RNA: Y RNA
Organism: Cercocebus atys
RNA sequence: GGCUGGUCCAAAGGUAAUGAGUUAUCUCAAUGAAUUGUUGACUAUCAGUUACUGAUCAAACUCCUUGUUCUACCCUUUCCCCUCUUCUCACUACUGUAGUUGACUAGUCUUAA
Numbered sequence: 001g002g003c004u005g006g007u008c009c010a011a012a013g014g015u016a017a018u019g020a021g022u023u024a025u026c027u028c029a030a031u032g033a034a035u036u037g038u039u040g041a042c043u044a045u046c047a048g049u050u051a052c053u054g055a056u057c058a059a060a061c062u063c064c065u066u067g068u069u070c071u072a073c074c075c076u077u078u079c080c081c082c083u084c085u086u087c088u089c090a091c092u093a094c095u096g097u098a099g100u101u102g103a104c105u106a107g108u109c110u111u112a113a
Base pairs, nucleotide, nucleotide: 001109002108003107004106005105006104007103008102010101011100014097015096016092018090019089020088021087047071048070